[Rfam]
Nucleotides: 089
Base pairs, nucleotide, nucleotide: 015036016035017034018033019032025050026049027048028047029046056076057075058074059073060072061071062070
Number, partner (000 for none) and nucleotide at each position: 001000u002000c003000c004000c005000a006000a007000u008000a009000c010000a011000a012000a013000u014000c015036u016035u017034g018033c019032c020000c021000u022000a023000c024000c025050g026049a027048g028047a029046c030000u031000a032019g033018g034017c035016a036015a037000g038000u039000a040000a041000a042000a043000u044000c045000c046029g047028u048027c049026u050025c051000u052000a053000a054000u055000a056076u057075c058074u059073u060072c061071u062070c063000u064000a065000g066000g067000g068000g069000u070062g071061a072060g073059a074058a075057g076056a077000a078000a079000u080000a081000a082000u083000a084000a085000a086000c087000u088000c089000g
Annotation
The family of this 89-nucleotide RNA sequence is "PhotoRC-II RNA". Rfam's curators put it in the seed alignment.